Shown here is a 53-nucleotide RNA from Trifolium medium, a member of the family "Plastid-atpF group II-D1 intron". A reference for the family is Richter et al. (2023), "Retrograde signaling in plants: A critical review focusing on the GUN pathway and beyond", Plant Commun.
[Rfam]
RNA sequence: UGGAAUUUUAUCGAUAUAGAAGACUCAUGUCGAUAAAAUGAAUUAAAUUCUCU
Numbered sequence: 001u002g003g004a005a006u007u008u009u010a011u012c013g014a015u016a017u018a019g020a021a022g023a024c025u026c027a028u029g030u031c032g033a034u035a036a037a038a039u040g041a042a043u044u045a046a047a048u049u050c051u052c053u
Stems, first nucleotide, its partner, number of pairs: 011033007

Plastid atpF is a non-coding RNA (ncRNA) recognised in plastids. It has been reported in the intron group II-D1 region of ATP synthase (atpF) genes. Rfam links the family to the GO term Group II intron splicing. Lineage of the source: Eukaryota > Viridiplantae > Streptophyta > Mesangiospermae > Trifolium. Pairs were carried over by alignment from the consensus structure, which was predicted with LocARNA.